[Rfam]
RNA: Bacterial RNase P class A
RNA sequence: GAAGUGGGCUAGGCCGUCGCUGGUGCAAGCGUGGAAACACCGCACUGGAGGAACGUCCGGACUGCAUAGGACAGCGUAGCAGGUAACACCUGCCCACCGUGAGGUGAGGAUUAGAGCAACAGAGACGAGUCUGGCGGGAGUGUCGAAAGAUAGACCAGCCGGGGUGAAACGGGCAAUCUCUACGCGCAGCAAUACCAAAUAGGCAUGCGAUGAACUGGUUCCGGCGAGCAUGCGGGUAGGUAGCACCGAGCUGAGUGGGCGACCCUCAGCCCAGAUUAAUGGCGGUCACAUGGUUGCUUGCAGCCAUGCACAAAAUCCGGCGUAUCGGCGCACUUCACAC
Numbered sequence: 001g002a003a004g005u006g007g008g009c010u011a012g013g014c015c016g017u018c019g020c021u022g023g024u025g026c027a028a029g030c031g032u033g034g035a036a037a038c039a040c041c042g043c044a045c046u047g048g049a050g051g052a053a054c055g056u057c058c059g060g061a062c063u064g065c066a067u068a069g070g071a072c073a074g075c076g077u078a079g080c081a082g083g084u085a086a087c088a089c090c091u092g093c094c095c096a097c098c099g100u101g102a103g104g105u106g107a108g109g110a111u112u113a114g115a116g117c118a119a120c121a122g123a124g125a126c127g128a129g130u131c132u133g134g135c136g137g138g139a140g141u142g143u144c145g146a147a148a149g150a151u152a153g154a155c156c157a158g159c160c161g162g163g164g165u166g167a168a169a170c171g172g173g174c175a176a177u178c179u180c181u182a183c184g185c186g187c188a189g190c191a192a193u194a195c196c197a198a199a200u201a202g203g204c205a206u207g208c209g210a211u212g213a214a215c216u217g218g219u220u221c222c223g224g225c226g227a228g229c230a231u232g233c234g235g236g237u238a239g240g241u242a243g244c245a246c247c248g249a250g251c252u253g254a255g256u257g258g259g260c261g262a263c264c265c266u267c268a269g270c271c272c273a274g275a276u277u278a279a280u281g282g283c284g285g286u287c288a289c290a291u292g293g294u295u296g297c298u299u300g301c302a303g304c305c306a307u308g309c310a311c312a313a314a315a316u317c318c319g320g321c322g323u324a325u326c327g328g329c330g331c332a333c334u335u336c337a338c339a340c
Stems, first nucleotide, its partner, number of pairs: 001336006008329003011325001012287007020048007053323003057320005062189004069221003074185005079093005094108001095106004109180002114178002116174002131163002133160003137156002141152004193242004203233006215224003250270006257264002